Shown here is a 97-nucleotide RNA, a member of the family "DUF3800-V RNA".
The sequence is in the family's curated seed alignment.
[Rfam]
RNA sequence: UGAAGCAUGCAAUAAUACCUUAUGAGGUGCCGUGGUGUUCCCCCGGAGGAUCCGGGAUCCAAGUCGCGGGUAAACCACCUUGUAAGACGCUGCUUCA
Numbered sequence: 001u002g003a004a005g006c007a008u009g010c011a012a013u014a015a016u017a018c019c020u021u022a023u024g025a026g027g028u029g030c031c032g033u034g035g036u037g038u039u040c041c042c043c044c045g046g047a048g049g050a051u052c053c054g055g056g057a058u059c060c061a062a063g064u065c066g067c068g069g070g071u072a073a074a075c076c077a078c079c080u081u082g083u084a085a086g087a088c089g090c091u092g093c094u095u096c097a
Stems, first nucleotide, its partner, number of pairs: 001097006009090002023082007030069007042056005
The family's RNA type in Rfam is small RNA.
Pairs were carried over by alignment from the consensus structure, which is taken from published work.